[Rfam]
Shown here is a 98-nucleotide RNA, a member of the family "DUF3800-V RNA".
Pairs were carried over by alignment from the consensus structure, which is taken from published work.
It is one of the family's seed sequences.
RNA sequence: AUAUCACAGCGGUAAAUCCGUUGUGAGUUGCUUAAGGUGUUCCCUUCCAUCGGUGGGCUAAAACUUUAACAUUAUAACCCACAGGGUGCGCUCUUUAU
Numbered sequence: 001a002u003a004u005c006a007c008a009g010c011g012g013u014a015a016a017u018c019c020g021u022u023g024u025g026a027g028u029u030g031c032u033u034a035a036g037g038u039g040u041u042c043c044c045u046u047c048c049a050u051c052g053g054u055g056g057g058c059u060a061a062a063a064c065u066u067u068a069a070c071a072u073u074a075u076a077a078c079c080c081a082c083a084g085g086g087u088g089c090g091c092u093c094u095u096u097a098u
Stems, first nucleotide, its partner, number of pairs: 001098003009091002024081002027078003032069007043057003047053002
Dot-bracket structure: (((.....((.............((.(((..(((((((....(((.((...)).))).....)))))))......))).))........))....)))